This 61-nucleotide RNA sequence from Drouetiella hepatica belongs to the Rfam family "Plastid-psbN 5UTR RNA". The source organism's lineage runs through Bacteria, Cyanobacteriota, Cyanophyceae, Drouetiella and Drouetiella hepatica. A reference for the family is Richter et al. (2023), "Retrograde signaling in plants: A critical review focusing on the GUN pathway and beyond", Plant Commun. A search with the family's covariance model found it, with a score of 53 bits.
RNA sequence: AAAAACGCCCAUCAACGGCGUUGUGCCCCAACCGGGCGCAACCUUACCGUACUCAGAGUUU
Numbered sequence: 001a002a003a004a005a006c007g008c009c010c011a012u013c014a015a016c017g018g019c020g021u022u023g024u025g026c027c028c029c030a031a032c033c034g035g036g037c038g039c040a041a042c043c044u045u046a047c048c049g050u051a052c053u054c055a056g057a058g059u060u061u
Stems, first nucleotide, its partner, number of pairs: 017045002020042008